[Rfam]
RNA: c-di-AMP riboswitch aptamer (ydaO/yuaA leader)
Nucleotides: 145
Base pairs, nucleotide, nucleotide: 012129013128014127018032019031020030021029022028033125034124035123036122037121038120043052044051053110054109055108061082062081063080064079065078066077067076085104086103087102088101
Number, partner (000 for none) and nucleotide at each position: 001000u002000a003000u004000u005000a006000a007000c008000a009000a010000g011000c012129g013128c014127u015000g016000a017000a018032u019031u020030c021029a022028c023000a024000g025000u026000a027000u028022g029021u030020g031019a032018a033125g034124c035123g036122g037121g038120g039000g040000a041000c042000c043052c044051g045000a046000u047000a048000a049000u050000a051044u052043g053110g054109g055108g056000u057000g058000a059000a060000u061082c062081c063080g064079a065078u066077g067076c068000a069000u070000u071000u072000a073000a074000a075000u076067g077066c078065a079064u080063u081062g082061g083000a084000g085104g086103g087102g088101u089000c090000a091000u092000a093000c094000u095000c096000u097000u098000u099000c100000g101088a102087u103086c104085c105000u106000a107000a108055u109054c110053c111000g112000u113000c114000a115000g116000c117000u118000a119000a120038c121037c122036u123035c124034g125033u126000a127014a128013g129012c130000c131000a132000a133000a134000g135000a136000a137000a138000g139000a140000g141000g142000a143000g144000g145000u